[Rfam]
RNA sequence: UCCGUCGCGAGGCGGAAUCUGAAGGAAGCCGGAGGCAAAGUUCCGGGCUGGCGAACAGAAAUCGCAUAUAAGGCAAUGCAAGGCGGACGAGUUUGCUAAACAAAACAAAGUCCAAAAGGCCGGAGAGGAAGAGAACAGAUUCCGGUUUUACUGCCCGAACCUUGCAGUGUAAAUGCGACGGCUAUAUGGGAUGAAGGUUACUGAC
Numbered sequence: 001u002c003c004g005u006c007g008c009g010a011g012g013c014g015g016a017a018u019c020u021g022a023a024g025g026a027a028g029c030c031g032g033a034g035g036c037a038a039a040g041u042u043c044c045g046g047g048c049u050g051g052c053g054a055a056c057a058g059a060a061a062u063c064g065c066a067u068a069u070a071a072g073g074c075a076a077u078g079c080a081a082g083g084c085g086g087a088c089g090a091g092u093u094u095g096c097u098a099a100a101c102a103a104a105a106c107a108a109a110g111u112c113c114a115a116a117a118g119g120c121c122g123g124a125g126a127g128g129a130a131g132a133g134a135a136c137a138g139a140u141u142c143c144g145g146u147u148u149u150a151c152u153g154c155c156c157g158a159a160c161c162u163u164g165c166a167g168u169g170u171a172a173a174u175g176c177g178a179c180g181g182c183u184a185u186a187u188g189g190g191a192u193g194a195a196g197g198u199u200a201c202u203g204a205c
Base pairs, nucleotide, nucleotide: 001016002015003014004013005012006011028205030203031202032201035198036197040192041191042190043189044188045187046183047182048181049180050179062178063177064176065175066174067173073170074169075168077166078165079164080163081162082161083160085113086112087111088110091106092105093104094103
This 205-nucleotide sequence belongs to the Rfam family "Group II catalytic intron D1-D4-3". For this family Rfam cites "Control of branch-site choice by a group II intron" (Chu et al., EMBO J, 2001). Pairs were carried over by alignment from the consensus structure.